[Rfam]
RNA: Selenocysteine insertion sequence 1
RNA sequence: UCUGGACCAGUGACGGCCUGUCUGUAAACCCAGCGAUGGGGAGGGCAGGCCUGAUGAUCCAUA
Number, nucleotide and partner (000 for none) at each position: 001u063002c000003u061004g060005g059006a000007c000008c000009a000010g000011u000012g000013a000014c000015g051016g050017c049018c048019u047020g046021u045022c044023u043024g000025u000026a000027a000028a000029c000030c039031c038032a037033g000034c000035g000036a000037u032038g031039g030040g000041g000042a000043g023044g022045g021046c020047a019048g018049g017050c016051c015052u000053g000054a000055u000056g000057a000058u000059c005060c004061a003062u000063a001